[Rfam]
RNA: Human immunodeficiency virus type 1 dimerisation initiation site
RNA sequence: GGACCCGGCUUGCCUGAAGCGCGCACGGCAAGAGGCGGGGGG
Numbered sequence: 001g002g003a004c005c006c007g008g009c010u011u012g013c014c015u016g017a018a019g020c021g022c023g024c025a026c027g028g029c030a031a032g033a034g035g036c037g038g039g040g041g042g
Base pairs, nucleotide, nucleotide: 004040005038006037007036009032010031011030012029013028014027016026